The family of this 75-nucleotide RNA from Thermaerobacter marianensis is "tRNA". The organism belongs to Thermaerobacter marianensis, within Bacteria. Rfam links the family to the GO term triplet codon-amino acid adaptor activity. The match comes from Rfam's covariance-model search (64 bits).
[Rfam]
RNA sequence: GCGCCGUUAGCUCAGUCCGGAUAGAGCGGCUGACUACGGAUCAGCAGGUCGGGGGUUCAAAUCCUCCACGGCGCA
Numbered sequence: 001g002c003g004c005c006g007u008u009a010g011c012u013c014a015g016u017c018c019g020g021a022u023a024g025a026g027c028g029g030c031u032g033a034c035u036a037c038g039g040a041u042c043a044g045c046a047g048g049u050c051g052g053g054g055g056u057u058c059a060a061a062u063c064c065u066c067c068a069c070g071g072c073g074c075a
Base pairs, nucleotide, nucleotide: 001074002073003072004071005070006069007068010027011026012025013024029045030044031043032042033041051067052066053065054064055063

The literature on the family includes a 1997 paper in Nucleic Acids Res by Lowe and Eddy, "tRNAscan-SE: a program for improved detection of transfer RNA genes in genomic sequence".